[Rfam]
RNA sequence: CCCUUAUAUAAUUUUGAUUGUUGCUCAGAAAGCCCGUAAUUUAACUUAACAUGGCUUUCGAGUAAUAAUCGAAACCAAAUAAG
Numbered sequence: 001c002c003c004u005u006a007u008a009u010a011a012u013u014u015u016g017a018u019u020g021u022u023g024c025u026c027a028g029a030a031a032g033c034c035c036g037u038a039a040u041u042u043a044a045c046u047u048a049a050c051a052u053g054g055c056u057u058u059c060g061a062g063u064a065a066u067a068a069u070c071g072a073a074a075c076c077a078a079a080u081a082a083g
Stems, first nucleotide, its partner, number of pairs: 003083005012074007020066007028059007